[Rfam]
RNA sequence: CUCACAGAGUUUAUUGGCAUUCUGUCCACCUCCUAUUCACAGAAGACCCUUUUUCUAUGGAGCUCUUGAGCACUGAUAUUUGUGGAGGUGGGCAUACUGCCAACAGAGUUCUGUUGG
Numbered sequence: 001c002u003c004a005c006a007g008a009g010u011u012u013a014u015u016g017g018c019a020u021u022c023u024g025u026c027c028a029c030c031u032c033c034u035a036u037u038c039a040c041a042g043a044a045g046a047c048c049c050u051u052u053u054u055c056u057a058u059g060g061a062g063c064u065c066u067u068g069a070g071c072a073c074u075g076a077u078a079u080u081u082g083u084g085g086a087g088g089u090g091g092g093c094a095u096a097c098u099g100c101c102a103a104c105a106g107a108g109u110u111c112u113g114u115u116g117g
Stems, first nucleotide, its partner, number of pairs: 011107001014103006023094011

The family of this 117-nucleotide sequence from Rhamnella rubrinervis is "MIR394 microRNA precursor family". The source organism's lineage runs through Eukaryota, Viridiplantae, Embryophyta, rosids and Rhamnella. Pairs were carried over by alignment from the consensus structure, which was predicted with WAR.